[Rfam]
RNA sequence: UGAUGACAUUCUCCGGAAUCUCUGUACUGUAUUGAUGAAAGUACAUUUGAACCCUUUUCCAUCUGAUAACUGAGCGUUUCGCAUC
Numbered sequence: 001u002g003a004u005g006a007c008a009u010u011c012u013c014c015g016g017a018a019u020c021u022c023u024g025u026a027c028u029g030u031a032u033u034g035a036u037g038a039a040a041g042u043a044c045a046u047u048u049g050a051a052c053c054c055u056u057u058u059c060c061a062u063c064u065g066a067u068a069a070c071u072g073a074g075c076g077u078u079u080c081g082c083a084u085c
Stems, first nucleotide, its partner, number of pairs: 002085004
Shown here is an 85-nucleotide sequence from Otolemur garnettii, a member of the family "Small nucleolar RNA MBII-202". It scores 93 bits against the family's covariance model. The family's RNA type in Rfam is C/D-box small nucleolar RNA. The source organism's lineage runs through Eukaryota, Amniota, Theria, Lorisiformes and Otolemur.